[Rfam]
RNA: Small nucleolar RNA SNORA63
RNA sequence: AAGCAGGACUUAACUACAUUAUAGCUGGCUUGUGCUAUAUUGUCGUUCCCCCUGCUCAAAACAAUACUGUUUCUUAACUAUACCUGUCUGCUUUGUAGCAGCCAGGGACGCUUGGUCUCAUACAU
Numbered sequence: 001a002a003g004c005a006g007g008a009c010u011u012a013a014c015u016a017c018a019u020u021a022u023a024g025c026u027g028g029c030u031u032g033u034g035c036u037a038u039a040u041u042g043u044c045g046u047u048c049c050c051c052c053u054g055c056u057c058a059a060a061a062c063a064a065u066a067c068u069g070u071u072u073c074u075u076a077a078c079u080a081u082a083c084c085u086g087u088c089u090g091c092u093u094u095g096u097a098g099c100a101g102c103c104a105g106g107g108a109c110g111c112u113u114g115g116u117c118u119c120a121u122a123c124a125u
Stems, first nucleotide, its partner, number of pairs: 003055005016043003020039006083106004088101004